[Rfam]
RNA sequence: GGCUUUCUUCGCGGCGGAGCUCGACCGCCCGCGCCGGUAGUCCUCGACUACAUCGAUAGGCACAAGGAACGGUUCGGGGUCGAGCCGAUCUGUGCCGUGCUGCGCGAUGCCGGUGUUCAGAUCGCCCCG
Numbered sequence: 001g002g003c004u005u006u007c008u009u010c011g012c013g014g015c016g017g018a019g020c021u022c023g024a025c026c027g028c029c030c031g032c033g034c035c036g037g038u039a040g041u042c043c044u045c046g047a048c049u050a051c052a053u054c055g056a057u058a059g060g061c062a063c064a065a066g067g068a069a070c071g072g073u074u075c076g077g078g079g080u081c082g083a084g085c086c087g088a089u090c091u092g093u094g095c096c097g098u099g100c101u102g103c104g105c106g107a108u109g110c111c112g113g114u115g116u117u118c119a120g121a122u123c124g125c126c127c128c129g
Stems, first nucleotide, its partner, number of pairs: 013029005075129005086124002089121004094116002